[Rfam]
Source information:
Iron response element I: a 35-nucleotide RNA sequence. The family has 62 seed sequences and 6,829 matches in Rfam 15.1.
RNA sequence: GGGUUCUUGCUUCAACAGUGAUUGAACGGAACUCC
Numbered sequence: 001g002g003g004u005u006c007u008u009g010c011u012u013c014a015a016c017a018g019u020g021a022u023u024g025a026a027c028g029g030a031a032c033u034c035c
Stems, first nucleotide, its partner, number of pairs: 001034007009027001011026005016020001